[Rfam]
The record is a 76-nucleotide sequence from Gallus gallus, which matches "mir-196 microRNA precursor family" in Rfam. A reference for the family is Lagos-Quintana et al. (2003), "New microRNAs from mouse and human", RNA. Rfam 15.1 lists 1,813 matches to the family in 642 species. NCBI's taxonomy places the organism under Eukaryota, Deuterostomia, Vertebrata, Neognathae, Gallus.
RNA sequence: UCUGUGAAUUAGGUAGUUUCAUGUUGUUGGGCUUUAAAUUUUAAACACAAGAACAUCAAACUACCUGAUUUACUCC
Numbered sequence: 001u002c003u004g005u006g007a008a009u010u011a012g013g014u015a016g017u018u019u020c021a022u023g024u025u026g027u028u029g030g031g032c033u034u035u036a037a038a039u040u041u042u043a044a045a046c047a048c049a050a051g052a053a054c055a056u057c058a059a060a061c062u063a064c065c066u067g068a069u070u071u072a073c074u075c076c
Stems, first nucleotide, its partner, number of pairs: 004073016022055004027050003031046001